[Rfam]
RNA sequence: CGGUGCGAGGGGGUCGUACGUCAUGCAGAAUGAUGGUGGAAUACGCUGCGUUGCGUGCGACUUCCCUUCACCGA
Numbered sequence: 001c002g003g004u005g006c007g008a009g010g011g012g013g014u015c016g017u018a019c020g021u022c023a024u025g026c027a028g029a030a031u032g033a034u035g036g037u038g039g040a041a042u043a044c045g046c047u048g049c050g051u052u053g054c055g056u057g058c059g060a061c062u063u064c065c066c067u068u069c070a071c072c073g074a
Base pairs, nucleotide, nucleotide: 003071004070005069007067009065010064011063012062013061014060015059016058017057018056019055020054021053023051024050025049026048027047

A member of the RNA family "mir-1421 microRNA precursor family" from Ornithorhynchus anatinus, 74 nucleotides long. Its family is annotated with RISC complex and miRNA-mediated post-transcriptional gene silencing in the Gene Ontology.